[Rfam]
RNA sequence: CCCAGAGGUAUUGAUAGGUGGUAUCGGCACUGUUGAUGUCGAUAACUGUAGUUACACCAGCCUGCGCGGAUGCGCAGGUUUUUUUU
Dot-bracket structure: ................((((..((((((.........))))))...........)))).((((((((....)))))))).......
Shown here is an 86-nucleotide sequence from Shimwellia blattae, a member of the family "OmrA-B family".
Rfam classes the family as a small RNA.
For this family Rfam cites "Two antisense RNAs target the transcriptional regulator CsgD to inhibit curli synthesis" (Holmqvist et al., EMBO J, 2010).